[Rfam]
Nucleoid-associated noncoding RNA 4 (CssrE): an 84-nucleotide RNA from Escherichia coli. Pairs were carried over by alignment from the consensus structure, which is taken from published work. For this family Rfam cites "An integrated approach for finding overlooked genes in Shigella" (Peng et al., PLoS One, 2011). About the family: In E. coli small RNA transcribed from repeated extragenic palindromic element (REP325) called nucleoid-associated ncRNA 4 (nRNA4) collaborates HU protein in condensing the DNA. The secondary structure but not the sequence of the RNA is important in nucleoid condensation. Also identified in Shigella as CssrE. Gene Ontology terms of the family: bacterial nucleoid, protein binding and bacterial nucleoid DNA packaging.
RNA sequence: GGUCAGACAAGGCGGUCACGCCGCAUCCGACAUCCAACGCCCGAGCCGGUUGCCUGAUGCGACGCUGGCGCGUCUUAUCAGGCC
Numbered sequence: 001g002g003u004c005a006g007a008c009a010a011g012g013c014g015g016u017c018a019c020g021c022c023g024c025a026u027c028c029g030a031c032a033u034c035c036a037a038c039g040c041c042c043g044a045g046c047c048g049g050u051u052g053c054c055u056g057a058u059g060c061g062a063c064g065c066u067g068g069c070g071c072g073u074c075u076u077a078u079c080a081g082g083c084c
Stems, first nucleotide, its partner, number of pairs: 002031003006027002011022004052083008061074005